[Rfam]
RNA: Glycine riboswitch aptamer
Nucleotides: 078
Stems, first nucleotide, its partner, number of pairs: 001078005012022003024066003027062002031060003037053002
Number, partner (000 for none) and nucleotide at each position: 001078c002077u003076c004075u005074g006000g007000a008000g009000a010000g011000a012022c013021u014020c015000a016000c017000u018000a019000a020014g021013a022012g023000c024066a025065c026064c027062g028061a029000a030000g031060g032059a033058g034000u035000a036000a037053c038052c039000u040000g041000a042000u043000u044000a045000a046000c047000u048000u049000c050000a051000g052038g053037g054000u055000a056000a057000u058033c059032u060031c061028u062027c063000a064026g065025g066024u067000a068000a069000a070000a071000g072000g073000a074005c075004a076003g077002g078001g